[Rfam]
RNA sequence: GAGAAAUGAGGAUAUAUACUUUGUCUGACUGUUACAAUGAAGACUUCAGAUCCAACUCUGAUCUCACUCUGACU
Dot-bracket structure: ((((.........................................................)))).........
RNA: Small nucleolar RNA SNORD19